[Rfam]
RNA: Small nucleolar RNA SNORA14
Organism: Buceros rhinoceros
Nucleotides: 135
Stems, first nucleotide, its partner, number of pairs: 003058004007051004016045006023038003062135003069129002073125002084115004089110002092107002098103001
Number, partner (000 for none) and nucleotide at each position: 001000c002000u003058g004057c005056a006055u007051u008050c009049u010048u011000a012000a013000c014000c015000c016045u017044c018043c019042u020041g021040g022000c023038a024037g025036c026000u027000c028000c029000a030000u031000u032000a033000u034000u035000g036025g037024c038023u039000u040021c041020c042019a043018g044017g045016a046000u047000a048010a049009g050008g051007a052000u053000g054000a055006a056005u057004g058003c059000a060000a061000g062135a063134g064133a065000a066000a067000a068000c069129u070128g071000u072000u073125g074124a075000u076000u077000a078000g079000u080000c081000u082000a083000a084115a085114a086113u087112g088000u089110a090109g091000a092107g093106c094000u095000c096000u097000u098103c099000u100000c101000c102000u103098g104000u105000g106093g107092c108000u109090c110089u111000u112087c113086a114085u115084u116000a117000u118000u119000u120000c121000a122000c123000a124074u125073c126000u127000u128070c129069a130000a131000c132000a133064u134063u135062u